[Rfam]
RNA: Selenocysteine transfer RNA
Organism: Luteitalea sp. TBR-22
RNA sequence: GGAAGCCAACGGGGCCCGGUGGCCCUCCCGGUCUUCAAAACCGGUGGUGUCCCGCCAUGCGGGAUGGCUGGGUUCGACUCCCAGGGGCUUCC
Numbered sequence: 001g002g003a004a005g006c007c008a009a010c011g012g013g014g015c016c017c018g019g020u021g022g023c024c025c026u027c028c029c030g031g032u033c034u035u036c037a038a039a040a041c042c043g044g045u046g047g048u049g050u051c052c053c054g055c056c057a058u059g060c061g062g063g064a065u066g067g068c069u070g071g072g073u074u075c076g077a078c079u080c081c082c083a084g085g086g087g088c089u090u091c092c
Base pairs, nucleotide, nucleotide: 001092002091003090004089005088006087007086011026012025013024014023015022016021027046028044029043030042031041032040048066049065050064051063052062069083070082071081072080